[Rfam]
RNA sequence: GGCCUUUGAUGCAAAGAAAAUUGUCCGUACCAUCUGAUCUCUUGAUGUAUUAAAACAUCUCUAGUUUCUGAGGCCU
Numbered sequence: 001g002g003c004c005u006u007u008g009a010u011g012c013a014a015a016g017a018a019a020a021u022u023g024u025c026c027g028u029a030c031c032a033u034c035u036g037a038u039c040u041c042u043u044g045a046u047g048u049a050u051u052a053a054a055a056c057a058u059c060u061c062u063a064g065u066u067u068c069u070g071a072g073g074c075c076u
Stems, first nucleotide, its partner, number of pairs: 001075004